[Rfam]
Nucleotides: 053
Base pairs, nucleotide, nucleotide: 006049007048008047009046010045011044017038018037019036020035021034022033023032
Number, partner (000 for none) and nucleotide at each position: 001000a002000g003000u004000a005000u006049u007048g008047u009046u010045u011044g012000u013000c014000c015000a016000c017038c018037g019036a020035u021034a022033a023032g024000c025000c026000c027000c028000g029000g030000a031000a032023c033022u034021u035020a036019u037018u038017g039000u040000a041000u042000g043000u044011c045010a046009a047008a048007c049006a050000u051000g052000a053000a

Annotation: The record is a 53-nucleotide sequence from Amylolactobacillus amylophilus, which matches "Ribosomal protein L13 leader" in Rfam. This family is a putative r-protein leader autoregulatory structure found in B. subtilis and other low-GC Gram-positive bacteria. It is located in the 5' untranslated regions of mRNAs encoding the L13-S9 (rplM-rpsI) ribosomal protein operon. Rfam classes the family as a cis-regulatory leader. Gene Ontology term of the family: regulation of gene expression. On this family, see Zengel and Lindahl, Prog Nucleic Acid Res Mol Biol 1994: "Diverse mechanisms for regulating ribosomal protein synthesis in Escherichia coli". The organism belongs to Amylolactobacillus amylophilus, within Bacteria. The family's consensus secondary structure was predicted with CMfinder.